[Rfam]
RNA sequence: UGUUCUUUGAUAUGAAAAUGUCAACCAUGUGAAGAGAGGUGUCAACUUGCAUGGAGCGUGGCUAAACAAGGCUUAUUGCCUGAUGAAACGAUAGUUUAUCAGGAAGAAGUUGGAUAUAUAGCAAUAUAUAUCCUGAAUGAGGAAACCUCAAACUUAACCACGUGUGCAUACCUUGAAAUAUGUAAAGGAACUGAACUUGUCGUGUCUGCAAUAAAAAGUCGUGGAAACACGUCCUCUCCUACAAGCGAUAUAGUGGGAGCUAUAUAAAGCCAAUGUAGGAAAUACCCAACAAAGACAUUGCACGUGAUGUGUAGAAAUACACUAUAAGACAAGUAGCAGGUACAAGUAGCUCAGAGUGCGUAGAGGAACGAUUUCUACAGAUAACGAAGCUAACAGGAAAUUAUUAGAUCUGAAAGACGAGUGAAAGUUGGGGGUAUUAUUCCCCUCGUUGGUUCAAAAGGGUAAGAAGCUAUAAGGUCGCAACUUAUAGCUCAGACUUAUUCUCAAUGUGUCUGAAUAUACACGAUCAAGUGUUAUGUAUGGCGAAAGUCAGAUAUUUUCAUAUUAAUGGC
Numbered sequence: 001u002g003u004u005c006u007u008u009g010a011u012a013u014g015a016a017a018a019u020g021u022c023a024a025c026c027a028u029g030u031g032a033a034g035a036g037a038g039g040u041g042u043c044a045a046c047u048u049g050c051a052u053g054g055a056g057c058g059u060g061g062c063u064a065a066a067c068a069a070g071g072c073u074u075a076u077u078g079c080c081u082g083a084u085g086a087a088a089c090g091a092u093a094g095u096u097u098a099u100c101a102g103g104a105a106g107a108a109g110u111u112g113g114a115u116a117u118a119u120a121g122c123a124a125u126a127u128a129u130a131u132c133c134u135g136a137a138u139g140a141g142g143a144a145a146c147c148u149c150a151a152a153c154u155u156a157a158c159c160a161c162g163u164g165u166g167c168a169u170a171c172c173u174u175g176a177a178a179u180a181u182g183u184a185a186a187g188g189a190a191c192u193g194a195a196c197u198u199g200u201c202g203u204g205u206c207u208g209c210a211a212u213a214a215a216a217a218g219u220c221g222u223g224g225a226a227a228c229a230c231g232u233c234c235u236c237u238c239c240u241a242c243a244a245g246c247g248a249u250a251u252a253g254u255g256g257g258a259g260c261u262a263u264a265u266a267a268a269g270c271c272a273a274u275g276u277a278g279g280a281a282a283u284a285c286c287c288a289a290c291a292a293a294g295a296c297a298u299u300g301c302a303c304g305u306g307a308u309g310u311g312u313a314g315a316a317a318u319a320c321a322c323u324a325u326a327a328g329a330c331a332a333g334u335a336g337c338a339g340g341u342a343c344a345a346g347u348a349g350c351u352c353a354g355a356g357u358g359c360g361u362a363g364a365g366g367a368a369c370g371a372u373u374u375c376u377a378c379a380g381a382u383a384a385c386g387a388a389g390c391u392a393a394c395a396g397g398a399a400a401u402u403a404u405u406a407g408a409u410c411u412g413a414a415a416g417a418c419g420a421g422u423g424a425a426a427g428u429u430g431g432g433g434g435u436a437u438u439a440u441u442c443c444c445c446u447c448g449u450u451g452g453u454u455c456a457a458a459a460g461g462g463u464a465a466g467a468a469g470c471u472a473u474a475a476g477g478u479c480g481c482a483a484c485u486u487a488u489a490g491c492u493c494a495g496a497c498u499u500a501u502u503c504u505c506a507a508u509g510u511g512u513c514u515g516a517a518u519a520u521a522c523a524c525g526a527u528c529a530a531g532u533g534u535u536a537u538g539u540a541u542g543g544c545g546a547a548a549g550u551c552a553g554a555u556a557u558u559u560u561c562a563u564a565u566u567a568a569u570g571g572c
Stems, first nucleotide, its partner, number of pairs: 008568001010566001016560003025054005036048003056163006072109003076106002079103001081101004086097004110135001112133009138150005173531002187520001188514001191339003195334007202298006220231004237280006245270002249264003254288004299360005309322005343427001349422004409496004430512001431446004448508003460504003465499002469492001471489006541552004
Rfam assigns this 572-nucleotide sequence to the family "ROOL RNA".
The sequence is in the family's curated seed alignment.
From the family's description: Firmicutes, Fusobacteria (1 example), Tenericutes (1 example).
The family's RNA type in Rfam is small RNA.